Shown here is a 101-nucleotide RNA sequence from Brassica carinata, a member of the family "Small nucleolar RNA Z157/R69/R10". The organism belongs to Brassica, within Eukaryota. By type it is a C/D-box small nucleolar RNA.
[Rfam]
RNA sequence: GGUAAUAUGGUGAUGAUACAAUAAUGUUGUGGACUAGAGUUUCUGAUCCGGGCACUUCACCCAGAAGUUGAAGAGUAACCCUUGGCUGUCUGAGUAUUCCC
Numbered sequence: 001g002g003u004a005a006u007a008u009g010g011u012g013a014u015g016a017u018a019c020a021a022u023a024a025u026g027u028u029g030u031g032g033a034c035u036a037g038a039g040u041u042u043c044u045g046a047u048c049c050g051g052g053c054a055c056u057u058c059a060c061c062c063a064g065a066a067g068u069u070g071a072a073g074a075g076u077a078a079c080c081c082u083u084g085g086c087u088g089u090c091u092g093a094g095u096a097u098u099c100c101c
Stems, first nucleotide, its partner, number of pairs: 001101002004098005040073004047066001048064001050062003

Source information
Its family is annotated with nucleolus and RNA processing in the Gene Ontology. Clan: SNORD52 clan.